Rfam assigns this 131-nucleotide RNA from Ictidomys tridecemlineatus to the family "Small nucleolar RNA SNORA1". Rfam 15.1 lists 1,282 matches to the family in 515 species. Rfam links the family to the GO terms nucleolus and RNA processing. About the family: ACA1 is a member of the H/ACA class of snoRNA that guide the sites of modification of uridines to pseudouridines.
RNA sequence: ACCCUCAUUCUAGAUGAGAAUAGGCACUGUGGAUUAGUGUCUAAAAUUGGUCAGUGUGGCUAAAUUGACACAGUUUAUGCUUCUAUCACAGUAUAUGUAUUGCAGUGGUGACAAUGAGACCUGUAACAUUU
Numbered sequence: 001a002c003c004c005u006c007a008u009u010c011u012a013g014a015u016g017a018g019a020a021u022a023g024g025c026a027c028u029g030u031g032g033a034u035u036a037g038u039g040u041c042u043a044a045a046a047u048u049g050g051u052c053a054g055u056g057u058g059g060c061u062a063a064a065u066u067g068a069c070a071c072a073g074u075u076u077a078u079g080c081u082u083c084u085a086u087c088a089c090a091g092u093a094u095a096u097g098u099a100u101u102g103c104a105g106u107g108g109u110g111a112c113a114a115u116g117a118g119a120c121c122u123g124u125a126a127c128a129u130u131u
Base pairs, nucleotide, nucleotide: 003059004058006056007055008054021043022042023041024040025039026038027037070124071123072122073121084110085109086108087107088106089105